[Rfam]
RNA: mir-19 microRNA precursor family
Organism: Denticeps clupeoides
RNA sequence: GGGCCCUGUCAGUUUUGCUGGUUUGCAUUCAGCUUUAACACAGGUUCGCUGUGCAAAUCCAUGCAAAACUGACUGUGCCA
Numbered sequence: 001g002g003g004c005c006c007u008g009u010c011a012g013u014u015u016u017g018c019u020g021g022u023u024u025g026c027a028u029u030c031a032g033c034u035u036u037a038a039c040a041c042a043g044g045u046u047c048g049c050u051g052u053g054c055a056a057a058u059c060c061a062u063g064c065a066a067a068a069c070u071g072a073c074u075g076u077g078c079c080a
Stems, first nucleotide, its partner, number of pairs: 003078002006075001008073011020060002022057007031050003